[Rfam]
The record is a 63-nucleotide RNA from Dictyocaulus viviparus, which matches "mir-72 microRNA precursor family" in Rfam. Clan: mir-31 microRNA precursor family. Pairs were carried over by alignment from the consensus structure, which was predicted with RNAalifold. The match comes from Rfam's covariance-model search (73 bits).
RNA sequence: GCUAGGCAAGAUGUUGGCAUAGCUGAAGCACAGUUCCUCAGCUAUGCUACAUUGGGCCACGCA
Numbered sequence: 001g002c003u004a005g006g007c008a009a010g011a012u013g014u015u016g017g018c019a020u021a022g023c024u025g026a027a028g029c030a031c032a033g034u035u036c037c038u039c040a041g042c043u044a045u046g047c048u049a050c051a052u053u054g055g056g057c058c059a060c061g062c063a
Stems, first nucleotide, its partner, number of pairs: 005058003011052004016048003022042005